Rfam assigns this 106-nucleotide RNA sequence from Variovorax sp. MHTC-1 to the family "TPP riboswitch aptamer (THI element)". Its family is annotated with thiamine pyrophosphate binding in the Gene Ontology. A search with the family's covariance model found it, with a score of 59 bits. NCBI's taxonomy places the organism under Bacteria, Pseudomonadati, Burkholderiales, Comamonadaceae, Variovorax. The base pairs follow the family's consensus structure, which is taken from published work.
RNA sequence: GGCCCCGCUCCGGGGUGCACGCAGAUGCGUACUGAGAUGGCCAAGCGGCCGAACCCGCGAACUUGAUCUGGUUCAUACCAGCGUAAGAAGAGCUGCGACUCCCCGG
Dot-bracket structure: ......((((((((.((.(((......))).)......((((....)))))..))))....((((..((((......))))..))))..)))).............
Numbered sequence: 001g002g003c004c005c006c007g008c009u010c011c012g013g014g015g016u017g018c019a020c021g022c023a024g025a026u027g028c029g030u031a032c033u034g035a036g037a038u039g040g041c042c043a044a045g046c047g048g049c050c051g052a053a054c055c056c057g058c059g060a061a062c063u064u065g066a067u068c069u070g071g072u073u074c075a076u077a078c079c080a081g082c083g084u085a086a087g088a089a090g091a092g093c094u095g096c097g098a099c100u101c102c103c104c105g106g
Stems, first nucleotide, its partner, number of pairs: 007093004011057004016051001017032001019030003039050004062087004068081004